[Rfam]
RNA sequence: UAGUAGGGACGAACAGCUAAAAACGCGCCGUCCUGGCGCAACACCUUUCUGACCAACAUCCUGUUGU
Number, nucleotide and partner (000 for none) at each position: 001u000002a000003g000004u000005a000006g000007g000008g000009a000010c000011g049012a048013a047014c000015a000016g044017c000018u000019a000020a000021a000022a000023a000024c000025g039026c038027g037028c036029c035030g000031u000032c000033c000034u000035g029036g028037c027038g026039c025040a000041a000042c000043a000044c016045c000046u000047u013048u012049c011050u000051g000052a000053c000054c066055a065056a064057c063058a000059u000060c000061c000062u000063g057064u056065u055066g054067u000

Shown here is a 67-nucleotide RNA from Bacillus sp. J14TS2, a member of the family "Bacillaceae-1 RNA". It is annotated as a small RNA.